Rfam assigns this 141-nucleotide sequence from Saimiri boliviensis to the family "U4 spliceosomal RNA". A search with the family's covariance model found it, with a score of 102 bits. The organism belongs to Saimiri boliviensis, within Eukaryota.
RNA sequence: AGCUUUGCGCAGCGGCAGUAUCGUAGCCAAAGAGGUUUAUCCAAGGCACGAUUAUUGCUAAUUAAAAACUUUUCCCAAUACCCCGCCAUGACAACUUGAAAUAUAGGCAGCAUUGGCAAUUUUUGACAAUUAUAUAUAAAA
Number, nucleotide and partner (000 for none) at each position: 001a000002g000003c000004u000005u000006u000007g000008c000009g000010c000011a000012g000013c000014g000015g000016c000017a000018g000019u000020a052021u051022c050023g049024u048025a000026g047027c046028c045029a000030a000031a000032g000033a000034g042035g041036u000037u000038u000039a000040u000041c035042c034043a000044a000045g028046g027047c026048a024049c023050g022051a021052u020053u000054a000055u000056u000057g000058c000059u000060a000061a000062u000063u000064a000065a000066a000067a000068a000069c000070u000071u000072u000073u000074c000075c000076c000077a000078a000079u000080a000081c000082c000083c000084c000085g117086c116087c115088a113089u112090g111091a000092c000093a000094a000095c106096u105097u000098g000099a000100a000101a000102u000103a000104u000105a096106g095107g000108c000109a000110g000111c090112a089113u088114u000115g087116g086117c085118a000119a000120u000121u000122u000123u000124u000125g000126a000127c000128a000129a000130u141131u140132a000133u138134a000135u000136a000137u000138a133139a000140a131141a130